[Rfam]
RNA sequence: UCUAACUUAAGCAAUACAGCCCCAAACCUUCUGCUGUAUCCUUGCGACCCCUUAGUCGCGCCAGUGUGAAUAAGCAUUUUCAAAAAGCA
Numbered sequence: 001u002c003u004a005a006c007u008u009a010a011g012c013a014a015u016a017c018a019g020c021c022c023c024a025a026a027c028c029u030u031c032u033g034c035u036g037u038a039u040c041c042u043u044g045c046g047a048c049c050c051c052u053u054a055g056u057c058g059c060g061c062c063a064g065u066g067u068g069a070a071u072a073a074g075c076a077u078u079u080u081c082a083a084a085a086a087g088c089a
Stems, first nucleotide, its partner, number of pairs: 037068002041064002043060006
Dot-bracket structure: ....................................((..((((((((......))))))..))..)).....................